A member of the RNA family "Bacterial large subunit ribosomal RNA" from Palleronia marisminoris, 247 nucleotides of a longer RNA. Lineage of the source: Bacteria > Pseudomonadati > Pseudomonadota > Roseobacteraceae > Palleronia. Pairs were carried over by alignment from the consensus structure, which is taken from published work. A search with the family's covariance model found it, with a score of 2658 bits.
RNA sequence: GGAUACUUGAGAGGAGUUGCCCCUAGUACGAGAGGACCGGGGUGAACGAUCCACUGGUGGACCUGUUAUCGCGCCAGCGGUAGUGCAGGGUAGCUAUGAUCGGACAGGAUAACCGCUGAAGGCAUCUAAGCGGGAAGCCCCCCUCAAAACAAGGUAUCCCUGAGGACCGUGGUAGACCACCACGUCGAUAGGCCGGAGAUGUAAGCGCAGCAAUGCGUUCAGUUGACCGGUACUAAUUGUCCGAUAG
Dot-bracket structure: ((((((((..((((..(((((((...............))))))).(((((...(((....(((((((((((....))))))..)))))....))).)))))....((....(((((...........)))))....))..))))......))))))))....(((((((((.......)))))....((((((((.((.....(((((....)))))....))..))))).)))...)))).....